[Rfam]
RNA sequence: GGGGGGAGGCCGGGUCCUGGGCUGUGUCCCGGCGCCCAGUGCUCCGGGGCCUGCGCUGUUGGUUGCGCUCCCGCCCCGCAGCGCCCU
Numbered sequence: 001g002g003g004g005g006g007a008g009g010c011c012g013g014g015u016c017c018u019g020g021g022c023u024g025u026g027u028c029c030c031g032g033c034g035c036c037c038a039g040u041g042c043u044c045c046g047g048g049g050c051c052u053g054c055g056c057u058g059u060u061g062g063u064u065g066c067g068c069u070c071c072c073g074c075c076c077c078g079c080a081g082c083g084c085c086c087u
Stems, first nucleotide, its partner, number of pairs: 001087004006082001009079002012075002017073001019071003023067004028062002030058006039051001041050003
RNA: mir-8799 microRNA precursor family
Organism: Nyctereutes procyonoides